[Rfam]
RNA sequence: GUCAGCACCCCGCACUGAAGUGACGGGGCUUCAUGCCUCACCUUCAGUUAGCUGACCAGCCUAAGUCAAAACUUGACUACGUUUUUGGGGUCAUGACACCUACAAAUGCUUUCCAGUUUGUAGCUCUGUCGCUAGUCGUUAAACAGUUUUACGAGGGGUAAAGCAGUGUGGCUAGCCCAACAAGCCCUGAAAACAUUGGCGAGGAAAACAUUAC
Numbered sequence: 001g002u003c004a005g006c007a008c009c010c011c012g013c014a015c016u017g018a019a020g021u022g023a024c025g026g027g028g029c030u031u032c033a034u035g036c037c038u039c040a041c042c043u044u045c046a047g048u049u050a051g052c053u054g055a056c057c058a059g060c061c062u063a064a065g066u067c068a069a070a071a072c073u074u075g076a077c078u079a080c081g082u083u084u085u086u087g088g089g090g091u092c093a094u095g096a097c098a099c100c101u102a103c104a105a106a107u108g109c110u111u112u113c114c115a116g117u118u119u120g121u122a123g124c125u126c127u128g129u130c131g132c133u134a135g136u137c138g139u140u141a142a143a144c145a146g147u148u149u150u151a152c153g154a155g156g157g158g159u160a161a162a163g164c165a166g167u168g169u170g171g172c173u174a175g176c177c178c179a180a181c182a183a184g185c186c187c188u189g190a191a192a193a194c195a196u197u198g199g200c201g202a203g204g205a206a207a208a209c210a211u212u213a214c
Stems, first nucleotide, its partner, number of pairs: 001056006007049001009028002011025002014021002059200003063196001064078005081194011096129002100123008110208002112205003131176009143167002146164007